[Rfam]
RNA sequence: CUUUGUAUUCUUCCACAGCUUUCUUGAACUGCAUCUAUUACAACCACCAUCCCCACGGCUGGUCCUGAGGCGGUUUCUUGUUUUUGCGGUUCAAUAAAGCUGUGGGAAGAUACAGAUA
Numbered sequence: 001c002u003u004u005g006u007a008u009u010c011u012u013c014c015a016c017a018g019c020u021u022u023c024u025u026g027a028a029c030u031g032c033a034u035c036u037a038u039u040a041c042a043a044c045c046a047c048c049a050u051c052c053c054c055a056c057g058g059c060u061g062g063u064c065c066u067g068a069g070g071c072g073g074u075u076u077c078u079u080g081u082u083u084u085u086g087c088g089g090u091u092c093a094a095u096a097a098a099g100c101u102g103u104g105g106g107a108a109g110a111u112a113c114a115g116a117u118a
Base pairs, nucleotide, nucleotide: 003115004114005113006112007111013105014104015103017101018100019099020098021097022096024094025093026092027091029089030088031087032086033085
Shown here is a 118-nucleotide sequence from Jatropha curcas, a member of the family "MIR396 microRNA precursor family".
The family's consensus secondary structure was predicted with WAR.
The literature on the family includes a 2004 paper in Mol Cell by Jones-Rhoades and Bartel, "Computational identification of plant microRNAs and their targets, including a stress-induced miRNA".
The family has 26 seed sequences and 744 matches in Rfam 15.1.
NCBI's taxonomy places the organism under Eukaryota, Embryophyta, Magnoliopsida, Mesangiospermae, Jatropha.